[Rfam]
A member of the RNA family "MIR2629 microRNA precursor family" from Medicago truncatula, 72 nucleotides long.
Lineage of the source: Eukaryota > Magnoliopsida > Mesangiospermae > Papilionoideae > Medicago.
Rfam links the family to the GO terms miRNA-mediated post-transcriptional gene silencing and RISC complex.
RNA sequence: UACCGCAGUUUUCCUCGGCAGUUAACUGCAGCCGGUUUUCUAAAACUUCGGUAGUUAACUGCCGAAGGUGUU
Number, nucleotide and partner (000 for none) at each position: 001u000002a000003c000004c000005g000006c000007a000008g000009u000010u000011u000012u068013c067014c000015u065016c064017g063018g062019c061020a060021g059022u058023u057024a056025a055026c054027u053028g052029c051030a000031g000032c000033c000034g000035g000036u000037u000038u000039u000040c000041u000042a000043a000044a000045a000046c000047u000048u000049c000050g000051g029052u028053a027054g026055u025056u024057a023058a022059c021060u020061g019062c018063c017064g016065a015066a000067g013068g012069u000070g000071u000072u000